[Rfam]
RNA sequence: GAAGUGUGAACCAAGCAGCGGCGUAAGCCGCGUGAGACUUGGAGCGGGCGGUCGUAAGACCACCCUGCA
Number, nucleotide and partner (000 for none) at each position: 001g000002a000003a000004g000005u000006g000007u000008g000009a000010a000011c042012c041013a040014a039015g038016c000017a000018g031019c030020g029021g028022c027023g000024u000025a000026a000027g022028c021029c020030g019031c018032g000033u000034g000035a000036g000037a000038c015039u014040u013041g012042g011043a000044g000045c000046g065047g064048g063049c000050g061051g060052u059053c058054g000055u000056a000057a000058g053059a052060c051061c050062a000063c048064c047065c046066u000067g000068c000069a000